The family of this 76-nucleotide sequence from Ameiurus melas is "mir-7563 microRNA precursor family". Its family is annotated with miRNA-mediated post-transcriptional gene silencing and RISC complex in the Gene Ontology. The family has 3 seed sequences and 362 matches in Rfam 15.1. A search with the family's covariance model found it, with a score of 87 bits.
RNA sequence: ACCGCGUAUUUACCUACUAUAUAGUAGGCGAAAUACAGCUAUCUCGGCUACUAUGUAGUAGGUAAGUACGCGGUUU
Numbered sequence: 001a002c003c004g005c006g007u008a009u010u011u012a013c014c015u016a017c018u019a020u021a022u023a024g025u026a027g028g029c030g031a032a033a034u035a036c037a038g039c040u041a042u043c044u045c046g047g048c049u050a051c052u053a054u055g056u057a058g059u060a061g062g063u064a065a066g067u068a069c070g071c072g073g074u075u076u
Base pairs, nucleotide, nucleotide: 001074002073003072004071005070006069007068008067009066010065011064012063013062014061015060017058018057019056020055021054022053023052024051025050026049027048029046030045031044033042034041035040